[Rfam]
RNA sequence: GGAGCUUACCAUAGUAAUUGUCUGUUUGACUAUGUAGCAGCCGGGCGUGCAUCGGAGUAAUCUUCUGUACGAAGCCCCGUAACUGCGAAGGUGCGAGCCGCAACGCAAGUGAACUCGAUUCGGCCUCGUUAACGCUAAUUGAGAGUGGCCAUCCUGCCGAAUGAGGUGAAGCCUAUAAUCGUUGCAGAAGCAACAGACAAGUGCAUGCAUCGGACUCUCCGGGGUGGUUGGAGG
Numbered sequence: 001g002g003a004g005c006u007u008a009c010c011a012u013a014g015u016a017a018u019u020g021u022c023u024g025u026u027u028g029a030c031u032a033u034g035u036a037g038c039a040g041c042c043g044g045g046c047g048u049g050c051a052u053c054g055g056a057g058u059a060a061u062c063u064u065c066u067g068u069a070c071g072a073a074g075c076c077c078c079g080u081a082a083c084u085g086c087g088a089a090g091g092u093g094c095g096a097g098c099c100g101c102a103a104c105g106c107a108a109g110u111g112a113a114c115u116c117g118a119u120u121c122g123g124c125c126u127c128g129u130u131a132a133c134g135c136u137a138a139u140u141g142a143g144a145g146u147g148g149c150c151a152u153c154c155u156g157c158c159g160a161a162u163g164a165g166g167u168g169a170a171g172c173c174u175a176u177a178a179u180c181g182u183u184g185c186a187g188a189a190g191c192a193a194c195a196g197a198c199a200a201g202u203g204c205a206u207g208c209a210u211c212g213g214a215c216u217c218u219c220c221g222g223g224g225u226g227g228u229u230g231g232a233g234g
Base pairs, nucleotide, nucleotide: 010034011033012032013031014030018024037086038085040083042079043078044076045075046071047070048069049068050067051066054063055062056061121226123225124224125223126222127221128220141219142218143217144216145215146214147173148172149171153166154165155164179213180212181211183209184208185207186206
Group II catalytic intron D1-D4-6: a 234-nucleotide RNA from Desulfurispirillum indicum. NCBI's taxonomy places the organism under Bacteria, Pseudomonadati, Chrysiogenota, Chrysiogenia, Desulfurispirillum indicum. From the family's description: Group II introns are found in rRNA, tRNA and mRNA of organelles in fungi, plants and protists, and also in mRNA in bacteria.